[Rfam]
RNA sequence: UCUUCAUUUCGCGUGCUCUCUCAUCGGUCAAAGUGGCGAGAAAACACGCGAAAUGAAGAGA
Numbered sequence: 001u002c003u004u005c006a007u008u009u010c011g012c013g014u015g016c017u018c019u020c021u022c023a024u025c026g027g028u029c030a031a032a033g034u035g036g037c038g039a040g041a042a043a044a045c046a047c048g049c050g051a052a053a054u055g056a057a058g059a060g061a
Stems, first nucleotide, its partner, number of pairs: 001059007010050001012048004017043001019041004
RNA: mir-8364 microRNA precursor family
Organism: Pristionchus pacificus